This 191-nucleotide RNA sequence from Ureibacillus massiliensis belongs to the Rfam family "6S / SsrS RNA". Rfam's curators write: E. coli 6S RNA was the first non coding RNA to be sequenced, but its function was unknown until recently. It consists of 184 nucleotides that fold into an extended hairpin structure with a large single-stranded internal bulge.
RNA sequence: UCAUAGCUGCGUUGUACGUACGAAUAUUAAGUUUUAACCUUUAAGCUGUAAAAGGGAGUUUUAGAUCGAGGAUGGAAUGGCGAGCAUCACACAUUUGUGAAUGAUGAUAAACAGGAAAUCUUUUGCGAACACCCACUUUGAGGAGUGGUGGUUUAAAACUUUCUAUAUAUUUACGGCAAGGCGGCUUUUAA
Numbered sequence: 001u002c003a004u005a006g007c008u009g010c011g012u013u014g015u016a017c018g019u020a021c022g023a024a025u026a027u028u029a030a031g032u033u034u035u036a037a038c039c040u041u042u043a044a045g046c047u048g049u050a051a052a053a054g055g056g057a058g059u060u061u062u063a064g065a066u067c068g069a070g071g072a073u074g075g076a077a078u079g080g081c082g083a084g085c086a087u088c089a090c091a092c093a094u095u096u097g098u099g100a101a102u103g104a105u106g107a108u109a110a111a112c113a114g115g116a117a118a119u120c121u122u123u124u125g126c127g128a129a130c131a132c133c134c135a136c137u138u139u140g141a142g143g144a145g146u147g148g149u150g151g152u153u154u155a156a157a158a159c160u161u162u163c164u165a166u167a168u169a170u171u172u173a174c175g176g177c178a179a180g181g182c183g184g185c186u187u188u189u190a191a
Stems, first nucleotide, its partner, number of pairs: 003188001005186006012179004017175003030160004035155003038151002054134003058130004065124001068123006079112001085106005